Rfam assigns this 98-nucleotide RNA sequence from Flavobacteriaceae bacterium UJ101 to the family "TPP riboswitch aptamer (THI element)". Pairs were carried over by alignment from the consensus structure, which is taken from published work.
RNA sequence: UAUAAACUUUAGGGGUGUUCUAAUUUUUUAGAACUGAGAAAUUACCCUUUGAACCUGAUACUGUUUGUACAGUCGUAGGAAAAAGUUGAUUUCAUUCG
Numbered sequence: 001u002a003u004a005a006a007c008u009u010u011a012g013g014g015g016u017g018u019u020c021u022a023a024u025u026u027u028u029u030a031g032a033a034c035u036g037a038g039a040a041a042u043u044a045c046c047c048u049u050u051g052a053a054c055c056u057g058a059u060a061c062u063g064u065u066u067g068u069a070c071a072g073u074c075g076u077a078g079g080a081a082a083a084a085g086u087u088g089a090u091u092u093c094a095u096u097c098g
Stems, first nucleotide, its partner, number of pairs: 006086005011048004017034005054079004060073004
The source organism's lineage runs through Bacteria, Bacteroidota, Flavobacteriia, Flavobacteriales and Flavobacteriaceae.